[Rfam]
RNA sequence: GACGUACCUGGGCCUGGUAACUCCACCACCGUUGGCGGUGACCAUGCGCCAACGGGGGCUGAGUUCCUACACCUAGUUGCGAG
Numbered sequence: 001g002a003c004g005u006a007c008c009u010g011g012g013c014c015u016g017g018u019a020a021c022u023c024c025a026c027c028a029c030c031g032u033u034g035g036c037g038g039u040g041a042c043c044a045u046g047c048g049c050c051a052a053c054g055g056g057g058g059c060u061g062a063g064u065u066c067c068u069a070c071a072c073c074u075a076g077u078u079g080c081g082a083g
Base pairs, nucleotide, nucleotide: 003081004080005079006078008076009075010074011073012072016068017067019065020064021063022062023061026058027057029055030054031053032052033051034050035049036048037047

Shown here is an 83-nucleotide sequence from Trichoplusia ni, a member of the family "mir-2765 microRNA precursor family". Its family is annotated with RISC complex and miRNA-mediated post-transcriptional gene silencing in the Gene Ontology. The base pairs follow the family's consensus structure, which was predicted with RNAalifold. Rfam 15.1 lists 109 matches to the family in 106 species. NCBI's taxonomy places the organism under Eukaryota, Protostomia, Pancrustacea, Obtectomera, Trichoplusia.